[Rfam]
This 70-nucleotide sequence from Octopus sinensis belongs to the Rfam family "mir-71 microRNA precursor family". The match comes from Rfam's covariance-model search (66 bits). Gene Ontology terms of the family: miRNA-mediated post-transcriptional gene silencing and RISC complex. On this family, see Li et al., BMC Genomics 2009: "Direct sequencing and expression analysis of a large number of miRNAs in Aedes aegypti and a multi-species survey of novel mosquito miRNAs". Lineage of the source: Eukaryota > Metazoa > Coleoidea > Incirrata > Octopus.

RNA sequence: UUGGCUUGAAAGACACGGGUAGUGAGAUGUUAUUUUAUAAACUUCUUACUACCCUGUCUUUCGAGCGGAU
Numbered sequence: 001u002u003g004g005c006u007u008g009a010a011a012g013a014c015a016c017g018g019g020u021a022g023u024g025a026g027a028u029g030u031u032a033u034u035u036u037a038u039a040a041a042c043u044u045c046u047u048a049c050u051a052c053c054c055u056g057u058c059u060u061u062c063g064a065g066c067g068g069a070u
Base pairs, nucleotide, nucleotide: 008062009061010060011059012058013057014056015055017054018053019052021050022049023048024047025046026045027044029042